Notes:
Ribosomal protein L10 leader: a 118-nucleotide RNA from Thermoanaerobacterium thermosaccharolyticum. About the family: This family is a putative r-protein leader autoregulatory structure found in B. subtilis and other low-GC Gram-positive bacteria. It is located in the 5' untranslated regions of mRNAs encoding ribosomal proteins L10 and L12 (rplJ-rplL). A search with the family's covariance model found it, with a score of 66 bits. NCBI's taxonomy places the organism under Bacteria, Bacillota, Clostridia, Thermoanaerobacterium, Thermoanaerobacterium thermosaccharolyticum.

RNA sequence: AGUAAAAUUGAAAACUUACCGUAGACAGUAGGUGUGGCAACACGUAAAUCCUACCGAGGUUUUUGAUAAAGUAAAAAAGGAUCCUCAUGUCUACGGGGGAUCCUUUUAAUAUUAUGGA
Dot-bracket structure: ...........................(((((.(((....)))......)))))........................((((((((.........))))))))...............